[Rfam]
Description: Small nucleolar RNA SNORD116: a 92-nucleotide sequence from Chrysochloris asiatica. The organism belongs to Chrysochloris, within Eukaryota. The match comes from Rfam's covariance-model search (103 bits). The base pairs follow the family's consensus structure, which was predicted with PFOLD.
RNA sequence: GGAUUGAUGAUGACUUCUCCAUAUACAUUCCUUGGAAAUCUGAACAAAAAGAGUGAAAACUCCUUACCAUCUCACUCAUCGACCUGAGGUCC
Numbered sequence: 001g002g003a004u005u006g007a008u009g010a011u012g013a014c015u016u017c018u019c020c021a022u023a024u025a026c027a028u029u030c031c032u033u034g035g036a037a038a039u040c041u042g043a044a045c046a047a048a049a050a051g052a053g054u055g056a057a058a059a060c061u062c063c064u065u066a067c068c069a070u071c072u073c074a075c076u077c078a079u080c081g082a083c084c085u086g087a088g089g090u091c092c
Stems, first nucleotide, its partner, number of pairs: 001092005026055005032047003